Rfam assigns this 67-nucleotide sequence from Psychrobacillus sp. FJAT-21963 to the family "Bacillaceae-1 RNA". Pairs were carried over by alignment from the consensus structure, which is taken from published work. It scores 62 bits against the family's covariance model. It is annotated as a small RNA.
RNA sequence: CUUGUCAGUCGGCAACCUAAGUACGCCGCGUCCUGCGGCAACGGUUGCAUGACCAACAUCCUGUGGG
Numbered sequence: 001c002u003u004g005u006c007a008g009u010c011g012g013c014a015a016c017c018u019a020a021g022u023a024c025g026c027c028g029c030g031u032c033c034u035g036c037g038g039c040a041a042c043g044g045u046u047g048c049a050u051g052a053c054c055a056a057c058a059u060c061c062u063g064u065g066g067g
Stems, first nucleotide, its partner, number of pairs: 012048006025039005053067002056064002